[Rfam]
RNA sequence: UCUAGGCCCCCGGAUGCGACCCCCAGCCGCGCUCCCUGGCGCACCUUCCCCGGUGCCAGGUCGCAGCGGAUGGGGAUCGGAUCCGGGGGACGCGCCCCA
Number, nucleotide and partner (000 for none) at each position: 001u000002c000003u000004a000005g000006g000007c000008c000009c000010c086011c085012g084013g083014a082015u081016g000017c000018g078019a077020c000021c075022c074023c073024c072025a071026g000027c069028c068029g067030c066031g064032c063033u000034c000035c060036c059037u058038g057039g056040c055041g054042c053043a000044c000045c000046u000047u000048c000049c000050c000051c000052g000053g042054u041055g040056c039057c038058a037059g036060g035061u000062c000063g032064c031065a000066g030067c029068g028069g027070a000071u025072g024073g023074g022075g021076a000077u019078c018079g000080g000081a015082u014083c013084c012085g011086g010087g000088g000089g000090a000091c000092g000093c000094g000095c000096c000097c000098c000099a000
mraW RNA: a 99-nucleotide RNA from Protaetiibacter larvae. The family's consensus secondary structure is taken from published work. Lineage of the source: Bacteria > Actinomycetes > Micrococcales > Microbacteriaceae > Protaetiibacter. The match comes from Rfam's covariance-model search (63 bits). Rfam 15.1 lists 851 matches to the family in 821 species.